[Rfam]
RNA sequence: UCGCCCACAAUGCCUUUCACGGGUUCAGCAAGGAUGCGGCCGGGUAGUUUCCUGAUCGGUCGAUGCAAACGUCGAAGCUCUUCAAAGGGGCAUCUCUGCUGGAGUCGUGAUCGGCUUAGAUCAUGCCGAUUAUCCGGUUCCUCCAAUGGUCUCCUCGCGCUAACCCCGUAGCGUGUGGUUUUUAGCGGGCUCCAGGCCCGCUUUUUUUU
Numbered sequence: 001u002c003g004c005c006c007a008c009a010a011u012g013c014c015u016u017u018c019a020c021g022g023g024u025u026c027a028g029c030a031a032g033g034a035u036g037c038g039g040c041c042g043g044g045u046a047g048u049u050u051c052c053u054g055a056u057c058g059g060u061c062g063a064u065g066c067a068a069a070c071g072u073c074g075a076a077g078c079u080c081u082u083c084a085a086a087g088g089g090g091c092a093u094c095u096c097u098g099c100u101g102g103a104g105u106c107g108u109g110a111u112c113g114g115c116u117u118a119g120a121u122c123a124u125g126c127c128g129a130u131u132a133u134c135c136g137g138u139u140c141c142u143c144c145a146a147u148g149g150u151c152u153c154c155u156c157g158c159g160c161u162a163a164c165c166c167c168g169u170a171g172c173g174u175g176u177g178g179u180u181u182u183u184a185g186c187g188g189g190c191u192c193c194a195g196g197c198c199c200g201c202u203u204u205u206u207u208u209u
Base pairs, nucleotide, nucleotide: 005149006148007147018109019108020107021106022105024103025102026101027100028099029098030097032095033094034093035092036091037090038057039056060075061074062073063072064071078089079088080087081086111132113130115128153178154177156175157174158173159172160171161170162169184202185201186200187199188198189197190196191195
Burkholderia sRNA Bp1_Cand871_SIPHT: a 209-nucleotide RNA from Paraburkholderia phymatum.
Gene Ontology term of the family: bacterial biofilm matrix.
For this family Rfam cites "Computational discovery and RT-PCR validation of novel Burkholderia conserved and Burkholderia pseudomallei unique sRNAs" (Khoo et al., BMC Genomics, 2012).
A search with the family's covariance model found it, with a score of 177 bits.
The organism belongs to Paraburkholderia phymatum, within Bacteria.
By type it is a small RNA.